The family of this 50-nucleotide sequence from Sphingomonas sp. AX6 is "chrB-b RNA".
By type it is a cis-regulatory element.
A search with the family's covariance model found it, with a score of 42 bits.
RNA sequence: ACGGGGCGUCGCAACCUCCCGGUCAGGCGCUCGCCGCGUCCAAGCGUUGC
Number, nucleotide and partner (000 for none) at each position: 001a000002c021003g020004g019005g018006g017007c000008g000009u000010c000011g050012c049013a048014a047015c046016c000017u006018c005019c004020c003021g002022g000023u000024c000025a000026g040027g039028c038029g037030c036031u000032c000033g000034c000035c000036g030037c029038g028039u027040c026041c000042a000043a000044g000045c000046g015047u014048u013049g012050c011